This 102-nucleotide RNA sequence from Rummeliibacillus stabekisii belongs to the Rfam family "Purine riboswitch aptamer". Lineage of the source: Bacteria > Bacillati > Bacillota > Caryophanales > Rummeliibacillus. The base pairs follow the family's consensus structure, which is taken from published work.

RNA sequence: GGGUGUAAUAAGCAAUUCUCUCAUAUAUCCCCGGGAAUAUGGCCCGAAAGUUUCUACCCAAUAACCGUAAAUUAUUGGACUAUGAGAGAAAGUAGAACCGUU
Numbered sequence: 001g002g003g004u005g006u007a008a009u010a011a012g013c014a015a016u017u018c019u020c021u022c023a024u025a026u027a028u029c030c031c032c033g034g035g036a037a038u039a040u041g042g043c044c045c046g047a048a049a050g051u052u053u054c055u056a057c058c059c060a061a062u063a064a065c066c067g068u069a070a071a072u073u074a075u076u077g078g079a080c081u082a083u084g085a086g087a088g089a090a091a092g093u094a095g096a097a098c099c100g101u102u
Stems, first nucleotide, its partner, number of pairs: 018088008032046004058078007